[Rfam]
RNA sequence: GAUUGAGGACGACCUCAAUCCCACAAGUCCAGAUUGAGGACGACCUCA
Numbered sequence: 001g002a003u004u005g006a007g008g009a010c011g012a013c014c015u016c017a018a019u020c021c022c023a024c025a026a027g028u029c030c031a032g033a034u035u036g037a038g039g040a041c042g043a044c045c046u047c048a
Stems, first nucleotide, its partner, number of pairs: 001020008035048005
Guanidine-II riboswitch aptamer (mini-ykkC): a 48-nucleotide RNA from Mizuhopecten yessoensis. Pairs were carried over by alignment from the consensus structure, which is taken from published work. NCBI's taxonomy places the organism under Eukaryota, Protostomia, Pteriomorphia, Pectinidae, Mizuhopecten. A search with the family's covariance model found it, with a score of 40 bits.